The record is an 80-nucleotide sequence from Crocodylus porosus, which matches "Mammalian CPEB3 ribozyme" in Rfam. The source organism's lineage runs through Eukaryota, Vertebrata, Gnathostomata, Archelosauria and Crocodylus. The match comes from Rfam's covariance-model search (40 bits).
[Rfam]
RNA sequence: AGGGGUUGCAAGGUUGAGGCCAUGGCUGAAGUGCUCAUAGUGCAGCCCUGCCAGAUUCCAACAAAUCUGCAAAUUCUGCU
Number, nucleotide and partner (000 for none) at each position: 001a000002g000003g000004g000005g000006u000007u000008g000009c000010a000011a000012g000013g048014u000015u000016g000017a000018g047019g046020c045021c000022a000023u000024g080025g079026c078027u000028g076029a075030a074031g043032u042033g041034c000035u000036c000037a000038u000039a000040g000041u033042g032043c031044a000045g020046c019047c018048c013049u000050g000051c000052c069053a068054g067055a066056u065057u064058c000059c000060a000061a000062c000063a000064a057065a056066u055067c054068u053069g052070c000071a000072a000073a000074u030075u029076c028077u000078g026079c025080u024